[Rfam]
Nucleotides: 084
Stems, first nucleotide, its partner, number of pairs: 004081001006079001008078001011076002017073004027064002029061002032058001034056003
Number, partner (000 for none) and nucleotide at each position: 001000u002000g003000a004081u005000g006079g007000a008078g009000c010000a011076g012075g013000g014000c015000u016000g017073g018072g019071g020070g021000c022000u023000a024000g025000u026000a027064g028063c029061u030060g031000g032058g033000c034056c035055a036054u037000g038000g039000c040000c041000c042000c043000a044000g045000g046000a047000g048000g049000u050000c051000c052000u053000g054036a055035u056034g057000a058032u059000c060030c061029g062000u063028g064027u065000c066000u067000a068000g069000g070020c071019c072018c073017u074000c075012u076011c077000a078008c079006c080000u081004g082000g083000a084000g

About this RNA:
NoRC associated RNA, pRNA: an 84-nucleotide RNA sequence from Crocuta crocuta. On this family, see Mayer et al., EMBO Rep 2008: "The structure of NoRC-associated RNA is crucial for targeting the chromatin remodelling complex NoRC to the nucleolus". Rfam classes the family as a non-coding RNA gene. NCBI's taxonomy places the organism under Eukaryota, Teleostomi, Theria, Boreoeutheria, Crocuta. Pairs were carried over by alignment from the consensus structure, which is taken from published work. The family has 23 seed sequences and 354 matches in Rfam 15.1.